This 97-nucleotide RNA sequence from Chlamydomonas reinhardtii belongs to the Rfam family "Small nucleolar RNA Z43". The organism belongs to Chlamydomonas, within Eukaryota. Rfam 15.1 lists 859 matches to the family in 240 species. By type it is a C/D-box small nucleolar RNA. A reference for the family is Chen et al. (2003), "The high diversity of snoRNAs in plants: identification and comparative study of 120 snoRNA genes from Oryza sativa", Nucleic Acids Res. Gene Ontology terms of the family: RNA processing and nucleolus.

RNA sequence: UAGCAAUGAUGCUUUAUGUCUCGUUCGGUGUAUUGGCGAUAAUCCAACAAAGCCAUGCCGACAAAACUAUACAUAUCACCACUCACAAUCUGAGCUA
Dot-bracket structure: ((((....................................(.(.......)....).....................................))))